Notes:
This 191-nucleotide sequence from Jaculus jaculus belongs to the Rfam family "U2 spliceosomal RNA". Its family is annotated with mRNA branch site recognition, pre-mRNA branch point binding and U2 snRNP in the Gene Ontology. It scores 154 bits against the family's covariance model. Rfam classes the family as a spliceosomal small nuclear RNA. The family has 208 seed sequences and 71,512 matches in Rfam 15.1.
[Rfam]
RNA sequence: AUCAAGUCUCAGCCUUUUGGCUAAGAUCAAAUGUAGUAUCUGUUCUUAUCAGUUUAAUAUCUGAUAUGUACUCUAACCAAGGACAAUAUAUUAAAUGGCUUUUUGUAGCUCAGAGUUGGAAUAGGAGCUAGCUCCGUCCACUCCAUGCAUCCACCUGGUAUUGCCGUACUUCCAGGAACGGUGCAACCCCU
Numbered sequence: 001a002u003c004a005a006g007u008c009u010c011a012g013c014c015u016u017u018u019g020g021c022u023a024a025g026a027u028c029a030a031a032u033g034u035a036g037u038a039u040c041u042g043u044u045c046u047u048a049u050c051a052g053u054u055u056a057a058u059a060u061c062u063g064a065u066a067u068g069u070a071c072u073c074u075a076a077c078c079a080a081g082g083a084c085a086a087u088a089u090a091u092u093a094a095a096u097g098g099c100u101u102u103u104u105g106u107a108g109c110u111c112a113g114a115g116u117u118g119g120a121a122u123a124g125g126a127g128c129u130a131g132c133u134c135c136g137u138c139c140a141c142u143c144c145a146u147g148c149a150u151c152c153a154c155c156u157g158g159u160a161u162u163g164c165c166g167u168a169c170u171u172c173c174a175g176g177a178a179c180g181g182u183g184c185a186a187c188c189c190c191u
Stems, first nucleotide, its partner, number of pairs: 007026003011022004047066006068084002071081002113143004118138002124135004147184005154176005
Dot-bracket structure: ......(((.((((....)))).)))....................((((((........)))))).((.((.......)).))............................((((.((....((((....)))).)).))))...(((((..(((((.............)))))...))))).......